[Rfam]
RNA sequence: AGUCUAAAACGUUCGUAGCCGGUCUGGUAAAUCCUUGGGUAAAUCGGGAAGCUUAACUUUCCGACUUCCGAGGAGACUGCCAGACUUGGGACCGGGAGAGGCAAGAGGUACUUCUGGGGUAGGGGUAAAAUCCUGUAAUCCUAGAAGGACCACCGGUGGCGAAGGCGUCUUGCUAGAACGGAUCCGACGGUGAGGGACGAAGCCCUGGGUCGCAAACGGGAUUAGAUACCCCGGUAGUCCAGGGUGUAAACGCUGCAGACUUGGUGUUGGAGGCCCUUCGGGGGCAUUCAGUGCCGGAGAGAAGUUGUUAAGUCUGCUACUUGGGGAGUACGUCCGCAAGGAUGAAACUUAAAGGAAU
Numbered sequence: 001a002g003u004c005u006a007a008a009a010c011g012u013u014c015g016u017a018g019c020c021g022g023u024c025u026g027g028u029a030a031a032u033c034c035u036u037g038g039g040u041a042a043a044u045c046g047g048g049a050a051g052c053u054u055a056a057c058u059u060u061c062c063g064a065c066u067u068c069c070g071a072g073g074a075g076a077c078u079g080c081c082a083g084a085c086u087u088g089g090g091a092c093c094g095g096g097a098g099a100g101g102c103a104a105g106a107g108g109u110a111c112u113u114c115u116g117g118g119g120u121a122g123g124g125g126u127a128a129a130a131u132c133c134u135g136u137a138a139u140c141c142u143a144g145a146a147g148g149a150c151c152a153c154c155g156g157u158g159g160c161g162a163a164g165g166c167g168u169c170u171u172g173c174u175a176g177a178a179c180g181g182a183u184c185c186g187a188c189g190g191u192g193a194g195g196g197a198c199g200a201a202g203c204c205c206u207g208g209g210u211c212g213c214a215a216a217c218g219g220g221a222u223u224a225g226a227u228a229c230c231c232c233g234g235u236a237g238u239c240c241a242g243g244g245u246g247u248a249a250a251c252g253c254u255g256c257a258g259a260c261u262u263g264g265u266g267u268u269g270g271a272g273g274c275c276c277u278u279c280g281g282g283g284g285c286a287u288u289c290a291g292u293g294c295c296g297g298a299g300a301g302a303a304g305u306u307g308u309u310a311a312g313u314c315u316g317c318u319a320c321u322u323g324g325g326g327a328g329u330a331c332g333u334c335c336g337c338a339a340g341g342a343u344g345a346a347a348c349u350u351a352a353a354g355g356a357a358u
Stems, first nucleotide, its partner, number of pairs: 001321003009318001011198004016192001018191003022085007030078001032074008045063007089185003092181003100174007107151002111147008122133003159166002203244006212238002217233004255317006263295009273285004299306002323350003332343004
Dot-bracket structure: (((.....(.((((.(.(((.(((((((.(.((((((((.....(((((((.....)))))))...))))))))...))))))))...((((((.....(((((((((..((((((((...(((......)))......))))))))..)).......((....)).)))))))....))).)))...))))..))))....((((((...((...((((.........))))...))))))))..........((((((..(((((((((.((((.....)))).)))))))))...((....)).....)))))))))).(((......((((....))))....)))........